A member of the RNA family "FMN riboswitch aptamer (RFN element)" from Methylibium sp. NZG, 170 nucleotides long.
RNA sequence: CGGCGUUCUCAGGGCGGGGUGAAAUUCCCCACCGGCGGUGGUGGCGGGCGGUUCGCAAGGCCGCUCGCACGAGCCCGCGAGCGCCCGGUGGUCCGCAGGGCUCACCGGGGUCAGCAGAUUCGGUGCGAUUCCGAAGCCGACGGUCACAGUCCGGAUGAAAGAGAGCGCGU
Number, nucleotide and partner (000 for none) at each position: 001c000002g000003g168004c167005g166006u165007u164008c163009u162010c161011a000012g000013g000014g000015c000016g000017g029018g028019g027020u000021g000022a000023a000024a000025u000026u000027c019028c018029c017030c000031a150032c149033c139034g138035g078036c077037g076038g075039u000040g000041g000042u000043g000044g000045c000046g000047g000048g000049c000050g000051g000052u000053u000054c000055g000056c000057a000058a000059g000060g000061c000062c000063g000064c000065u000066c000067g000068c000069a000070c000071g000072a000073g000074c000075c038076c037077g036078c035079g000080a000081g115082c114083g000084c000085c000086c000087g000088g000089u000090g000091g000092u000093c000094c000095g000096c000097a000098g000099g000100g000101c000102u000103c000104a000105c000106c000107g000108g000109g000110g000111u000112c000113a000114g082115c081116a000117g000118a000119u135120u134121c133122g132123g131124u000125g000126c000127g000128a000129u000130u000131c123132c122133g121134a120135a119136g000137c000138c034139g033140a000141c153142g152143g151144u000145c000146a000147c000148a000149g032150u031151c143152c142153g141154g000155a000156u000157g000158a000159a000160a000161g010162a009163g008164a007165g006166c005167g004168c003169g000170u000
Description:
It scores 98 bits against the family's covariance model. Lineage of the source: Bacteria > Pseudomonadota > Betaproteobacteria > Burkholderiales > Methylibium. The family's consensus secondary structure is taken from published work.